Rfam assigns this 99-nucleotide sequence to the family "Methylobacterium-1 RNA". Rfam classes the family as a small RNA.
RNA sequence: GUUGGAAUGGUGUUAAAAUAUUCCCAGCAGGACAAGGGAGAAAUAACCCUUACAGAUUAUGAUAGUAAACAUAUCUGCAUCAUAUAUCUGACCGAAGUU
Numbered sequence: 001g002u003u004g005g006a007a008u009g010g011u012g013u014u015a016a017a018a019u020a021u022u023c024c025c026a027g028c029a030g031g032a033c034a035a036g037g038g039a040g041a042a043a044u045a046a047c048c049c050u051u052a053c054a055g056a057u058u059a060u061g062a063u064a065g066u067a068a069a070c071a072u073a074u075c076u077g078c079a080u081c082a083u084a085u086a087u088c089u090g091a092c093c094g095a096a097g098u099u
Stems, first nucleotide, its partner, number of pairs: 001028005007021003034051005053090005058084005065078003